[Rfam]
S-element: a 68-nucleotide sequence from Rhizobium etli. A reference for the family is Venkova-Canova et al. (2004), "Two discrete elements are required for the replication of a repABC plasmid: an antisense RNA and a stem-loop structure", Mol Microbiol. From the family's description: This family represents a group of S-elements from p42d and related plasmids. The S-element has multiple functions and is believed to act as a negative regulator of repC transcription, be required for efficient replication and act as a translational enhancer of repC. Rfam links the family to the GO terms translation regulator activity and mRNA transcription. The base pairs follow the family's consensus structure, which is taken from published work. Rfam 15.1 lists 231 matches to the family in 124 species.

RNA sequence: UGUCAAGCAUCUUCGGCAUCCUUUUGGGUGGUAGAUUUCUUUUGCCUUGAAAAAAGGUGAGGGACAUG
Dot-bracket structure: .........((((...((((.((((.....(((((.....)))))......)))))))).))))....
Numbered sequence: 001u002g003u004c005a006a007g008c009a010u011c012u013u014c015g016g017c018a019u020c021c022u023u024u025u026g027g028g029u030g031g032u033a034g035a036u037u038u039c040u041u042u043u044g045c046c047u048u049g050a051a052a053a054a055a056g057g058u059g060a061g062g063g064a065c066a067u068g
Stems, first nucleotide, its partner, number of pairs: 010064004017059004022055004031045005